Record summary: FMN riboswitch aptamer (RFN element): a 136-nucleotide RNA sequence from Lachnospiraceae bacterium 3_1_57FAA_CT1. The family's consensus secondary structure is taken from published work. Taxonomically the source falls in Lachnospiraceae (Bacteria, Bacillati, Clostridia, Lachnospirales). It scores 106 bits against the family's covariance model.
RNA sequence: AAAGUUCUUCAGGGUCGGGUGUAAUUCCCUACCGGCGGUGAAGCUGCGUGAGCAGACAAGUCCGCGACCCGCAUAAGCGGCUGAUUCCGGUAAGAAUCCGGAACCGACAGUAAAGUCUGGAUGAGAGAAGAAGAAU
Numbered sequence: 001a002a003a004g005u006u007c008u009u010c011a012g013g014g015u016c017g018g019g020u021g022u023a024a025u026u027c028c029c030u031a032c033c034g035g036c037g038g039u040g041a042a043g044c045u046g047c048g049u050g051a052g053c054a055g056a057c058a059a060g061u062c063c064g065c066g067a068c069c070c071g072c073a074u075a076a077g078c079g080g081c082u083g084a085u086u087c088c089g090g091u092a093a094g095a096a097u098c099c100g101g102a103a104c105c106g107a108c109a110g111u112a113a114a115g116u117c118u119g120g121a122u123g124a125g126a127g128a129a130g131a132a133g134a135a136u
Stems, first nucleotide, its partner, number of pairs: 005132006017029003031116002033106002035065004060104002069080002086102005108119003